Source information: A member of the RNA family "Ascomycota telomerase RNA" from Trichoderma arundinaceum, 406 nucleotides of a longer RNA. Rfam links the family to the GO terms telomere maintenance via telomerase, telomerase catalytic core complex and telomerase activity.
RNA sequence: AGUCAUACAGAAGGAGGCUCUCUUGACUACAUCUAGAAUAUCUAGGUCUCGAUACGCUACUCAGACUUUGGACUCGGCGAAAUCGAAGAAGGCAGCAAAUUCAUUUUAGGGUUGGUACGGGACAAAAGUCCUGACAUCAGUCCGCUUAGGACACCGCGGAUACGACUCGGUGUCGAUUUCGACAUGGAGCCGGGACCCAUCUUGAGCUGGAGUCAAAGCUUAGUGCUUGUCCGGUUUCCUGAUCUACUCGAAAACCGAGUCCGACUCGCGGGCUGUCGUCUGGCUUGGCUCAUUGACAUGUACUCUGUACGAUUAUUGGAUUAUAAGGACACACCAUGGCUUCGGAAGGCAGUCCUGGUUGUCCUUCUCCCAGAAAUGGCUGGAGGACAACCCCCCGCCGGUGAGG
Numbered sequence: 001a002g003u004c005a006u007a008c009a010g011a012a013g014g015a016g017g018c019u020c021u022c023u024u025g026a027c028u029a030c031a032u033c034u035a036g037a038a039u040a041u042c043u044a045g046g047u048c049u050c051g052a053u054a055c056g057c058u059a060c061u062c063a064g065a066c067u068u069u070g071g072a073c074u075c076g077g078c079g080a081a082a083u084c085g086a087a088g089a090a091g092g093c094a095g096c097a098a099a100u101u102c103a104u105u106u107u108a109g110g111g112u113u114g115g116u117a118c119g120g121g122a123c124a125a126a127a128g129u130c131c132u133g134a135c136a137u138c139a140g141u142c143c144g145c146u147u148a149g150g151a152c153a154c155c156g157c158g159g160a161u162a163c164g165a166c167u168c169g170g171u172g173u174c175g176a177u178u179u180c181g182a183c184a185u186g187g188a189g190c191c192g193g194g195a196c197c198c199a200u201c202u203u204g205a206g207c208u209g210g211a212g213u214c215a216a217a218g219c220u221u222a223g224u225g226c227u228u229g230u231c232c233g234g235u236u237u238c239c240u241g242a243u244c245u246a247c248u249c250g251a252a253a254a255c256c257g258a259g260u261c262c263g264a265c266u267c268g269c270g271g272g273c274u275g276u277c278g279u280c281u282g283g284c285u286u287g288g289c290u291c292a293u294u295g296a297c298a299u300g301u302a303c304u305c306u307g308u309a310c311g312a313u314u315a316u317u318g319g320a321u322u323a324u325a326a327g328g329a330c331a332c333a334c335c336a337u338g339g340c341u342u343c344g345g346a347a348g349g350c351a352g353u354c355c356u357g358g359u360u361g362u363c364c365u366u367c368u369c370c371c372a373g374a375a376a377u378g379g380c381u382g383g384a385g386g387a388c389a390a391c392c393c394c395c396c397g398c399c400g401g402u403g404a405g406g
Base pairs, nucleotide, nucleotide: 194214195213196212197210198209199208216228217227218226219225